[Rfam]
The record is a 124-nucleotide RNA from Myotis brandtii, which matches "Small nucleolar RNA SNORA32" in Rfam. Rfam links the family to the GO terms RNA processing and nucleolus. Rfam's curators write: ACA32 is a member of the H/ACA class of snoRNA that guide the sites of modification of uridines to pseudouridines. Taxonomically the source falls in Myotis (Eukaryota, Bilateria, Laurasiatheria, Yangochiroptera). The family's consensus secondary structure was predicted with RNAfold.
RNA sequence: UGGUCAUUACCAAGGCUUUUAGAAUGCAGUCUCUCAUUUGCUGUGCACAUGACCAAAAAACAUUUUCCCACUAAGUUUUUUUUUUCUGCUAUGUUGGCAGUGUUCAGCUUAUUUGGGAACAUUU
Numbered sequence: 001u002g003g004u005c006a007u008u009a010c011c012a013a014g015g016c017u018u019u020u021a022g023a024a025u026g027c028a029g030u031c032u033c034u035c036a037u038u039u040g041c042u043g044u045g046c047a048c049a050u051g052a053c054c055a056a057a058a059a060a061c062a063u064u065u066u067c068c069c070a071c072u073a074a075g076u077u078u079u080u081u082u083u084u085u086c087u088g089c090u091a092u093g094u095u096g097g098c099a100g101u102g103u104u105c106a107g108c109u110u111a112u113u114u115g116g117g118a119a120c121a122u123u124u
Base pairs, nucleotide, nucleotide: 003053004052005051006050007049011045012044026041027040028039029038067117068116069115070114074109075108076107077106087102088101089100